[Rfam]
RNA sequence: GCGGUGCUGCGGGGCGCGUCAGGAAACUAGAAUCCCCGGGCCCUUACGAUUCCGAACGGGAGCUGUCACUGGCCUUGACCGUGGUCUUGGCCACAACGGCGCCCACCUACUCUGUAGGUGUCCCGGGAUCAAAACUCCAACGGCCAUCGUGGCUCCGCG
Numbered sequence: 001g002c003g004g005u006g007c008u009g010c011g012g013g014g015c016g017c018g019u020c021a022g023g024a025a026a027c028u029a030g031a032a033u034c035c036c037c038g039g040g041c042c043c044u045u046a047c048g049a050u051u052c053c054g055a056a057c058g059g060g061a062g063c064u065g066u067c068a069c070u071g072g073c074c075u076u077g078a079c080c081g082u083g084g085u086c087u088u089g090g091c092c093a094c095a096a097c098g099g100c101g102c103c104c105a106c107c108u109a110c111u112c113u114g115u116a117g118g119u120g121u122c123c124c125g126g127g128a129u130c131a132a133a134a135c136u137c138c139a140a141c142g143g144c145c146a147u148c149g150u151g152g153c154u155c156c157g158c159g
Stems, first nucleotide, its partner, number of pairs: 002157003006153006013145003017142003033128004038123003041118002058104003062100005070093005077086001

About this RNA:
Rfam assigns this 159-nucleotide sequence from Hansschlegelia beijingensis to the family "6S / SsrS RNA". The match comes from Rfam's covariance-model search (61 bits). The base pairs follow the family's consensus structure, which is taken from published work. It is annotated as a non-coding RNA gene. The organism belongs to Hansschlegelia, within Bacteria. The family has 150 seed sequences and 5,006 matches in Rfam 15.1. From the family's description: E. coli 6S RNA was the first non coding RNA to be sequenced, but its function was unknown until recently.